[Rfam]
The family of this 123-nucleotide sequence from Gossypium schwendimanii is "MIR7504 microRNA precursor family".
The family has 8 seed sequences and 7,343 matches in Rfam 15.1.
RNA sequence: AAUAGGAGCAUGAUAAAUAAGAUUUUUCCUUCUGAUUUUUAGCAUUUUUAGUUGGAUUUGAAUGUUUUCAGGAGAAAAAAGCUGAAAAUCAGGAAGAAAGAUCUGAUUUGUCAUGCUCCUAUA
Numbered sequence: 001a002a003u004a005g006g007a008g009c010a011u012g013a014u015a016a017a018u019a020a021g022a023u024u025u026u027u028c029c030u031u032c033u034g035a036u037u038u039u040u041a042g043c044a045u046u047u048u049u050a051g052u053u054g055g056a057u058u059u060g061a062a063u064g065u066u067u068u069c070a071g072g073a074g075a076a077a078a079a080a081g082c083u084g085a086a087a088a089u090c091a092g093g094a095a096g097a098a099a100g101a102u103c104u105g106a107u108u109u110g111u112c113a114u115g116c117u118c119c120u121a122u123a
Stems, first nucleotide, its partner, number of pairs: 002122017020104008030094010041083002045079004